[Rfam]
RNA sequence: AAUUGAAUAAGAGGUAGCAAUGUAAAAGAGUAGUCACAGGGAGAAGGCGUUCGAUGAUGCGUGAUGAAAGGUAACCAUUGCCGAACGGUGUAAAUUGGCAAGUUUUCAUCGUGGGGGUAUAGGGAAUACGUAUAUCACUCCUACUAAAUAGUAGAGGCGCUGACAAAUUG
Numbered sequence: 001a002a003u004u005g006a007a008u009a010a011g012a013g014g015u016a017g018c019a020a021u022g023u024a025a026a027a028g029a030g031u032a033g034u035c036a037c038a039g040g041g042a043g044a045a046g047g048c049g050u051u052c053g054a055u056g057a058u059g060c061g062u063g064a065u066g067a068a069a070g071g072u073a074a075c076c077a078u079u080g081c082c083g084a085a086c087g088g089u090g091u092a093a094a095u096u097g098g099c100a101a102g103u104u105u106u107c108a109u110c111g112u113g114g115g116g117g118u119a120u121a122g123g124g125a126a127u128a129c130g131u132a133u134a135u136c137a138c139u140c141c142u143a144c145u146a147a148a149u150a151g152u153a154g155a156g157g158c159g160c161u162g163a164c165a166a167a168u169u170g
Stems, first nucleotide, its partner, number of pairs: 008163001010161002017081006023074001025072001033065005040058001085112006092105005113139002116136006123129001141154005